[Rfam]
RNA sequence: UGUUAAAAUUUUCAUUUAUUUGUAUUGUUAAAAACUAACAUGGCUGACGGAAUAAUCAAACAUUGACACGUAGCAUGCCAUGUGUACUUAAUGUUCAUGUAUAGAAACCAGUUUUGAAUAGUAGAGAUGGAUAGAAUUUUUUAACA
Numbered sequence: 001u002g003u004u005a006a007a008a009u010u011u012u013c014a015u016u017u018a019u020u021u022g023u024a025u026u027g028u029u030a031a032a033a034a035c036u037a038a039c040a041u042g043g044c045u046g047a048c049g050g051a052a053u054a055a056u057c058a059a060a061c062a063u064u065g066a067c068a069c070g071u072a073g074c075a076u077g078c079c080a081u082g083u084g085u086a087c088u089u090a091a092u093g094u095u096c097a098u099g100u101a102u103a104g105a106a107a108c109c110a111g112u113u114u115u116g117a118a119u120a121g122u123a124g125a126g127a128u129g130g131a132u133a134g135a136a137u138u139u140u141u142u143a144a145c146a
Stems, first nucleotide, its partner, number of pairs: 002145007011136003014132003018128004023123004028118002031115003
A member of the RNA family "MIR7502 microRNA precursor family" from Gossypium gossypioides, 146 nucleotides long. Rfam 15.1 lists 74,505 matches to the family in 24 species. The organism belongs to Gossypium, within Eukaryota. The match comes from Rfam's covariance-model search (97 bits).